A member of the RNA family "Group II catalytic intron D1-D4-3" from Sporosarcina limicola, 166 nucleotides long.
A search with the family's covariance model found it, with a score of 66 bits.
Taxonomically the source falls in Sporosarcina (Bacteria, Bacillati, Bacillota, Caryophanaceae).
[Rfam]
RNA sequence: GGUAUCGCGAGGUUCUGUGCGGAGGACCAGAAGGCAAAACUUGGAACAGAUAGCAUAAACCAUGUUGGCUGGCAGGAUAGGAUAACCUUGCAAGACGUAGGGACGUCCAAAACCACAACUAUAUCCUGUUAGUUAGGAGGACUGGAUUCGAGGGAAAGAGAAUUGA
Number, nucleotide and partner (000 for none) at each position: 001g016002g015003u000004a013005u012006c011007g000008c000009g000010a000011g006012g005013u004014u000015c002016u001017g000018u000019g000020c000021g000022g000023a000024g000025g000026a000027c000028c165029a164030g163031a000032a000033g000034g000035c158036a000037a000038a000039a000040c152041u151042u150043g149044g148045a000046a000047c144048a143049g142050a000051u000052a000053g000054c000055a000056u000057a000058a000059a000060c140061c139062a000063u137064g000065u000066u000067g000068g133069c132070u131071g000072g129073c128074a127075g126076g125077a124078u123079a000080g108081g107082a106083u105084a000085a000086c101087c100088u099089u000090g000091c000092a000093a000094g000095a000096c000097g000098u000099a088100g087101g086102g000103a000104c000105g083106u082107c081108c080109a000110a000111a000112a000113c000114c000115a000116c000117a000118a000119c000120u000121a000122u000123a078124u077125c076126c075127u074128g073129u072130u000131a070132g069133u068134u000135a000136g000137g063138a000139g061140g060141a000142c049143u048144g047145g000146a000147u000148u044149c043150g042151a041152g040153g000154g000155a000156a000157a000158g035159a000160g000161a000162a000163u030164u029165g028166a000